[Rfam]
RNA sequence: CCCAAGGCUUACGCCAUUGGGCUAGAUUGAGUCAUGCUUUCAGCAUU
Numbered sequence: 001c002c003c004a005a006g007g008c009u010u011a012c013g014c015c016a017u018u019g020g021g022c023u024a025g026a027u028u029g030a031g032u033c034a035u036g037c038u039u040u041c042a043g044c045a046u047u
Stems, first nucleotide, its partner, number of pairs: 001021005006015003034046005
Dot-bracket structure: ((((((((....))).)))))............(((((...))))).

Acido-Lenti-1 RNA: a 47-nucleotide RNA sequence from Lentisphaera araneosa. By type it is a small RNA. NCBI's taxonomy places the organism under Bacteria, Pseudomonadati, Lentisphaeria, Lentisphaera, Lentisphaera araneosa. The family's consensus secondary structure is taken from published work.